[Rfam]
This 58-nucleotide RNA sequence from Actinacidiphila paucisporea belongs to the Rfam family "msiK RNA". The family's consensus secondary structure is taken from published work.
RNA sequence: GACCUGCUUCCUUUACUCGGAUCGUCCGGCACGUUCCUGCCGGUGAAGGGACUGUGUA
Dot-bracket structure: ........(((((((..........((((((......)))))))))))))........